The family of this 74-nucleotide RNA from Paraclostridium benzoelyticum is "RAGATH-18 RNA".
The base pairs follow the family's consensus structure, which is taken from published work.
It is annotated as a small RNA.
RNA sequence: CCUAUGGAGUGUUAUAUCAAACUAAAGUAGAUAACUGUUUAUAGUUUUCAAAAUAGGACACUAUGAAUUAGGAA
Dot-bracket structure: ((((....(((((........(((.....((...((......))...))....)))))))).......))))..
Numbered sequence: 001c002c003u004a005u006g007g008a009g010u011g012u013u014a015u016a017u018c019a020a021a022c023u024a025a026a027g028u029a030g031a032u033a034a035c036u037g038u039u040u041a042u043a044g045u046u047u048u049c050a051a052a053a054u055a056g057g058a059c060a061c062u063a064u065g066a067a068u069u070a071g072g073a074a
Stems, first nucleotide, its partner, number of pairs: 001072004009061005022056003030049002035044002
About the family: Actinobacteria, Firmicutes, Fusobacteria, Thermotogae (1 example). The organism belongs to Paraclostridium, within Bacteria.